[Rfam]
RNA sequence: ACCGUGGCUUUAGAUUGUUACUGUAGAGACGGUAACAUGGUAACAGUCUACAGCCAUGGUCG
Numbered sequence: 001a002c003c004g005u006g007g008c009u010u011u012a013g014a015u016u017g018u019u020a021c022u023g024u025a026g027a028g029a030c031g032g033u034a035a036c037a038u039g040g041u042a043a044c045a046g047u048c049u050a051c052a053g054c055c056a057u058g059g060u061c062g
Base pairs, nucleotide, nucleotide: 002059003058005056006055007054008053013048014047015046016045017044018043019042020041021040022039